[Rfam]
About this RNA: The record is a 351-nucleotide part of an RNA from Empedobacter falsenii, which matches "Bacterial small subunit ribosomal RNA" in Rfam. Pairs were carried over by alignment from the consensus structure, which is taken from published work. Rfam links the family to the GO terms structural constituent of ribosome and ribosome.

RNA sequence: GGUUUAAAGGGUCCGUAGGCGGAUUAAUCAGUCAGUGGUGAAAUCUCAUAGCUUAACUAUGAAACUGCCAUUGAUACUGUUAGUCUUGAGUGAUGUUGAAGUUGCUGGAAUGUGUAGUGUAGCGGUGAAAUGCUUAGAUAUUACGCAGAACACCAAUUGCGAAGGCAGGUGACUAAACAUCAACUGACGCUGAUGGACGAAAGCGUGGGGAGCGAACAGGAUUAGAUACCCUGGUAGUCCACGCCGUAAACGAUGGAUACUUGCUGUUGGGUUUUCGAACUCAGUGGCUAAGCGAAAGUUAUAAGUAUCCCACCUGGGGAGUACGUUCGCAAGAAUGAAACUCAAAGGAAU
Numbered sequence: 001g002g003u004u005u006a007a008a009g010g011g012u013c014c015g016u017a018g019g020c021g022g023a024u025u026a027a028u029c030a031g032u033c034a035g036u037g038g039u040g041a042a043a044u045c046u047c048a049u050a051g052c053u054u055a056a057c058u059a060u061g062a063a064a065c066u067g068c069c070a071u072u073g074a075u076a077c078u079g080u081u082a083g084u085c086u087u088g089a090g091u092g093a094u095g096u097u098g099a100a101g102u103u104g105c106u107g108g109a110a111u112g113u114g115u116a117g118u119g120u121a122g123c124g125g126u127g128a129a130a131u132g133c134u135u136a137g138a139u140a141u142u143a144c145g146c147a148g149a150a151c152a153c154c155a156a157u158u159g160c161g162a163a164g165g166c167a168g169g170u171g172a173c174u175a176a177a178c179a180u181c182a183a184c185u186g187a188c189g190c191u192g193a194u195g196g197a198c199g200a201a202a203g204c205g206u207g208g209g210g211a212g213c214g215a216a217c218a219g220g221a222u223u224a225g226a227u228a229c230c231c232u233g234g235u236a237g238u239c240c241a242c243g244c245c246g247u248a249a250a251c252g253a254u255g256g257a258u259a260c261u262u263g264c265u266g267u268u269g270g271g272u273u274u275u276c277g278a279a280c281u282c283a284g285u286g287g288c289u290a291a292g293c294g295a296a297a298g299u300u301a302u303a304a305g306u307a308u309c310c311c312a313c314c315u316g317g318g319g320a321g322u323a324c325g326u327u328c329g330c331a332a333g334a335a336u337g338a339a340a341c342u343c344a345a346a347g348g349a350a351u
Base pairs, nucleotide, nucleotide: 001314002313003312009311011198012197013196014195016192018191019190020189022085023084024083025082026081027080028079030078031077032074033073034072035071036070037069038068039067040066046062047061048060049059050058051057089185090184091183092181093180094179095178096177097176100174101173102172103171104170105169106168107151111147112146113145114144115143116142117141118140122133123132124131159166160165203244204243205242206241207240208239212238213237217233218232219231220230255310256309257308258307259306260305263288264287265286266285267284268283269282270281271280272279273278292299293298316343317342318341325336326335327334328333